Small nucleolar RNA U3: a 213-nucleotide RNA sequence from Rhinolophus ferrumequinum.
Pairs were carried over by alignment from the consensus structure, which is taken from published work.
The family is grouped with related families in Rfam's "U3 clan".
Rfam 15.1 lists 19,072 matches to the family in 1,215 species.
On this family, see Zwieb, Nucleic Acids Res 1997: "The uRNA database".
Rfam's curators write: Small nucleolar RNAs (snoRNAs) are involved in the processing and modification of rRNA in the nucleolus. There are two main classes of snoRNAs: the box C/D class, and the box H/ACA class.
The source organism's lineage runs through Eukaryota, Amniota, Chiroptera, Rhinolophinae and Rhinolophus.
[Rfam]
RNA sequence: AAGACUAUACUUUCAGGGAUCGUUUCUAUAGUUUGUUACUAGAGAACUUUCUCUGACGUGUAGAGCACCCGAGACCACAAGGAGGAGGAGCAGUGUUCUCUCCUGAGUGGGAAGCUGGCUCUUGGUGUUGCUUUUGCGACUGCUAUUAGCCAUUGGUGAUCAUUCUUCUCUUCCUUUGGGAGAGUAAGAGGGAGAGAACGCAGUCUGAGUGGC
Numbered sequence: 001a002a003g004a005c006u007a008u009a010c011u012u013u014c015a016g017g018g019a020u021c022g023u024u025u026c027u028a029u030a031g032u033u034u035g036u037u038a039c040u041a042g043a044g045a046a047c048u049u050u051c052u053c054u055g056a057c058g059u060g061u062a063g064a065g066c067a068c069c070c071g072a073g074a075c076c077a078c079a080a081g082g083a084g085g086a087g088g089a090g091c092a093g094u095g096u097u098c099u100c101u102c103c104u105g106a107g108u109g110g111g112a113a114g115c116u117g118g119c120u121c122u123u124g125g126u127g128u129u130g131c132u133u134u135u136g137c138g139a140c141u142g143c144u145a146u147u148a149g150c151c152a153u154u155g156g157u158g159a160u161c162a163u164u165c166u167u168c169u170c171u172u173c174c175u176u177u178g179g180g181a182g183a184g185u186a187a188g189a190g191g192g193a194g195a196g197a198a199c200g201c202a203g204u205c206u207g208a209g210u211g212g213c
Stems, first nucleotide, its partner, number of pairs: 002040002006035002009032003015027004049064002053060001075212004093201012107163003117151004123145004127140005166187002168184007